[Rfam]
RNA sequence: UCUUUUUAAUUUAACCUUUCUGCUAAAACUGUAUAAACUAAUCUAAUCUCAGCUUAGUAUUUGUGACAAAGCUAGCAGAGUAAGCACAGGAAGAAAAAUCAAUUAAACAACUACACCAGAUAGAAGAAAACUGAGAUGAACCUCUUCAGUCCAGACUGCUUGUUCUAGAUUUGAUAUCACAGCG
Numbered sequence: 001u002c003u004u005u006u007u008a009a010u011u012u013a014a015c016c017u018u019u020c021u022g023c024u025a026a027a028a029c030u031g032u033a034u035a036a037a038c039u040a041a042u043c044u045a046a047u048c049u050c051a052g053c054u055u056a057g058u059a060u061u062u063g064u065g066a067c068a069a070a071g072c073u074a075g076c077a078g079a080g081u082a083a084g085c086a087c088a089g090g091a092a093g094a095a096a097a098a099u100c101a102a103u104u105a106a107a108c109a110a111c112u113a114c115a116c117c118a119g120a121u122a123g124a125a126g127a128a129a130a131c132u133g134a135g136a137u138g139a140a141c142c143u144c145u146u147c148a149g150u151c152c153a154g155a156c157u158g159c160u161u162g163u164u165c166u167a168g169a170u171u172u173g174a175u176a177u178c179a180c181a182g183c184g
Stems, first nucleotide, its partner, number of pairs: 018080002021077005030068002035060001037058005043052002113177001115175001117173004133157001137153002140150001

A member of the RNA family "Small nucleolar RNA SNORA81" from Oryctolagus cuniculus, 184 nucleotides long.
The base pairs follow the family's consensus structure, which was predicted with WAR.
Its family is annotated with nucleolus and RNA processing in the Gene Ontology.
On this family, see Gu et al., Nucleic Acids Res 2005: "A novel experimental approach for systematic identification of box H/ACA snoRNAs from eukaryotes".